This 345-nucleotide part of an RNA from Triticum urartu belongs to the Rfam family "Archaeal large subunit ribosomal RNA". The family's consensus secondary structure is taken from published work.
[Rfam]
RNA sequence: AGAGCAUCGAGAGGACCUUUCCCUAGUAUGAGAGGACCGGGAAGGACGCACAUCUGGUGUACCAGUUAUCGUGCCUACGAUAAAGGCUGGGUAGCCAAGUGCGGAGAGGAUAACUGCUGAAAGCAUAUAAGUAGUAAGCCCACCCCAAGAUGAGUGCUCUCUCCUCCGACUUCCCUAGAGCCUCCGGUAUUACAGCCGAGACAGUGACGGGUUCUCGACCCAUACGGGGAUGGAGCGACAGAAGUAUGGAAAUAGGAUAAGGUAGCGGCGAGAUGAGCUGUUUAAAUAGGUGUCAAGUGGAAGUGCAGUGAUGUAUGCAGCUGAGGCAUCCUAACGAACAAACAA
Dot-bracket structure: (((((((...(.((..(((((((...............))))))).(((((...(((....((((((((((......)))))...)))))....))).)))))....((....(((((...........)))))....))..)).).......))))))).....................................................................................................((.(((((.......))))).....((((((((.((.....(((((....)))))....))..))))).)))....))......
Numbered sequence: 001a002g003a004g005c006a007u008c009g010a011g012a013g014g015a016c017c018u019u020u021c022c023c024u025a026g027u028a029u030g031a032g033a034g035g036a037c038c039g040g041g042a043a044g045g046a047c048g049c050a051c052a053u054c055u056g057g058u059g060u061a062c063c064a065g066u067u068a069u070c071g072u073g074c075c076u077a078c079g080a081u082a083a084a085g086g087c088u089g090g091g092u093a094g095c096c097a098a099g100u101g102c103g104g105a106g107a108g109g110a111u112a113a114c115u116g117c118u119g120a121a122a123g124c125a126u127a128u129a130a131g132u133a134g135u136a137a138g139c140c141c142a143c144c145c146c147a148a149g150a151u152g153a154g155u156g157c158u159c160u161c162u163c164c165u166c167c168g169a170c171u172u173c174c175c176u177a178g179a180g181c182c183u184c185c186g187g188u189a190u191u192a193c194a195g196c197c198g199a200g201a202c203a204g205u206g207a208c209g210g211g212u213u214c215u216c217g218a219c220c221c222a223u224a225c226g227g228g229g230a231u232g233g234a235g236c237g238a239c240a241g242a243a244g245u246a247u248g249g250a251a252a253u254a255g256g257a258u259a260a261g262g263u264a265g266c267g268g269c270g271a272g273a274u275g276a277g278c279u280g281u282u283u284a285a286a287u288a289g290g291u292g293u294c295a296a297g298u299g300g301a302a303g304u305g306c307a308g309u310g311a312u313g314u315a316u317g318c319a320g321c322u323g324a325g326g327c328a329u330c331c332u333a334a335c336g337a338a339c340a341a342a343c344a345a
Stems, first nucleotide, its partner, number of pairs: 001160007011146001013144002017045007047103005055097003062090005067082005108140002114134005262339002265281005287333003290329005296322002303316005
It scores 1338 bits against the family's covariance model.